[Rfam]
RNA sequence: CCUAGUUCGGGCCUGGAGAAGCCGCAGAUCGAGGAGAGGGAGGAGGAGGAGGAGGAGGAAGAAGAGGAGGAGGAGGAGAGGGGGCCGCAGUGGGCGCUCGGCUCUUUGAAGCCGGGCUCAUGGACGGGUGAAGCGGCCGUGUGCGCAGACAGUGCUCCAGCCGCGCGCGCGCCCCAGGCCCUGGCCCGGGCCUCGGUUCCCGAAGGAAGAAGAAGGAGAAGAGCCCGCCAAGGCGCGGAGGAGAGCGGGCUACCCCGCAGUCCUAGCCGGAGAGGGAGCUUGAGUCGUACCGGCUCCGGCCGGGCCUCCGAAACCAUGAACUUUCUGCUU
Number, nucleotide and partner (000 for none) at each position: 001c000002c036003u035004a000005g000006u033007u032008c031009g000010g029011g000012c027013c024014u000015g022016g000017a000018g000019a000020a000021g000022c015023c000024g013025c000026a000027g012028a000029u010030c000031g008032a007033g006034g000035a003036g002037a000038g000039g000040g000041a000042g000043g000044a000045g000046g000047a000048g000049g000050a000051g000052g000053a000054g000055g000056a000057g000058g000059a000060a329061g328062a000063a326064g325065a000066g323067g322068a000069g315070g314071a000072g000073g308074a307075g306076g305077a000078g000079a000080g000081g297082g296083g295084g294085c293086c292087g290088c000089a000090g288091u287092g286093g285094g000095c284096g000097c000098u000099c000100g000101g281102c000103u000104c278105u277106u276107u000108g000109a000110a000111g000112c000113c000114g263115g262116g261117c260118u259119c000120a000121u257122g256123g255124a000125c000126g175127g174128g173129u000130g172131a000132a000133g168134c167135g166136g164137c163138c000139g161140u159141g158142u000143g155144c154145g153146c152147a000148g000149a000150c000151a000152g146153u145154g144155c143156u000157c000158c141159a140160g000161c139162c000163g137164c136165g000166c135167g134168c133169g000170c000171g000172c130173c128174c127175c126176a000177g254178g253179c000180c000181c000182u000183g251184g250185c249186c248187c247188g246189g000190g000191c241192c240193u239194c238195g000196g236197u000198u233199c232200c000201c000202g228203a000204a000205g224206g000207a000208a000209g000210a000211a000212g000213a000214a000215g000216g000217a000218g000219a000220a000221g000222a000223g000224c205225c000226c000227g000228c202229c000230a000231a000232g199233g198234c000235g000236c196237g000238g194239a193240g192241g191242a000243g000244a000245g000246c188247g187248g186249g185250c184251u183252a000253c178254c177255c123256c122257g121258c000259a118260g117261u116262c115263c114264u000265a000266g000267c000268c000269g000270g000271a000272g000273a000274g000275g000276g106277a105278g104279c000280u000281u101282g000283a000284g095285u093286c092287g091288u090289a000290c087291c000292g086293g085294c084295u083296c082297c081298g000299g000300c000301c000302g000303g000304g000305c076306c075307u074308c073309c000310g000311a000312a000313a000314c070315c069316a000317u000318g000319a000320a000321c000322u067323u066324u000325c064326u063327g000328c061329u060330u000

A member of the RNA family "Vascular endothelial growth factor (VEGF) IRES A" from Jaculus jaculus, 330 nucleotides long.
Rfam 15.1 lists 110 matches to the family in 109 species.
Gene Ontology term of the family: ribosome binding.
Pairs were carried over by alignment from the consensus structure, which is taken from published work.
About the family: This family represents the vascular endothelial growth factor (VEGF) internal ribosome entry site (IRES) A. VEGF is an endothelial cell mitogen with many crucial functions such as embryogenic development and wound healing. The 5' UTR of VEGF mRNA contains two IRES elements which are able to promote efficient translation at the AUG start codon, this family represents IRES A.